About this RNA
Shown here is a 45-nucleotide RNA sequence from Pseudogracilibacillus auburnensis, a member of the family "PreQ1 (pre queuosine) riboswitch aptamer". This family is a bacterial riboswitch that binds to the metabolite preQ1, an intermediate in the biosynthesis of the modified nucleoside queuosine from GTP. One example of this riboswitch is located in the leader of the Bacillus subtilis ykvJKLM (queCDEF) operon which encodes four genes necessary for queuosine production. PreQ1 binding to the riboswitch aptamer is thought to induce premature transcription termination within the leader to down-regulate expression of these genes. Its family is annotated with queuosine biosynthetic process in the Gene Ontology. A reference for the family is Schroeder et al. (2020), "Analysis of a preQ1-I riboswitch in effector-free and bound states reveals a metabolite-programmed nucleobase-stacking spine that controls gene regulation", Nucleic Acids Res.
[Rfam]
RNA sequence: UUCACCGUUGUUCGAAACCAUCCAACGCAAAAAAACUAAGGAGAG
Numbered sequence: 001u002u003c004a005c006c007g008u009u010g011u012u013c014g015a016a017a018c019c020a021u022c023c024a025a026c027g028c029a030a031a032a033a034a035a036c037u038a039a040g041g042a043g044a045g
Stems, first nucleotide, its partner, number of pairs: 006027005016037001